[Rfam]
RNA: BsrC
RNA sequence: GAGUACUAAAACAAUGAAAGCCCUACCUCUCUUUCAUCCUUGCGGCUCCUUGACCGCGCCAGUGUGGAUCAGUAACACGAAUACUAA
Numbered sequence: 001g002a003g004u005a006c007u008a009a010a011a012c013a014a015u016g017a018a019a020g021c022c023c024u025a026c027c028u029c030u031c032u033u034u035c036a037u038c039c040u041u042g043c044g045g046c047u048c049c050u051u052g053a054c055c056g057c058g059c060c061a062g063u064g065u066g067g068a069u070c071a072g073u074a075a076c077a078c079g080a081a082u083a084c085u086a087a
Stems, first nucleotide, its partner, number of pairs: 034067003039062002041058005047052001